The family of this 59-nucleotide RNA from Muraenolepis orangiensis is "U7 small nuclear RNA". Pairs were carried over by alignment from the consensus structure, which was predicted with PFOLD. Rfam describes the family as follows. Animal histone pre-mRNAs are spliced by a different mechanism than nuclear pre-mRNAs and self-splicing introns. The organism belongs to Muraenolepis, within Eukaryota. Rfam 15.1 lists 10,439 matches to the family in 569 species. A search with the family's covariance model found it, with a score of 40 bits.
RNA sequence: UAGGGAUUAAUGCUCUUUAAUAUUUAUCCAGAAGGAUUCCUAGUAAAAAGGGAUCCCCC
Numbered sequence: 001u002a003g004g005g006a007u008u009a010a011u012g013c014u015c016u017u018u019a020a021u022a023u024u025u026a027u028c029c030a031g032a033a034g035g036a037u038u039c040c041u042a043g044u045a046a047a048a049a050g051g052g053a054u055c056c057c058c059c
Stems, first nucleotide, its partner, number of pairs: 034056008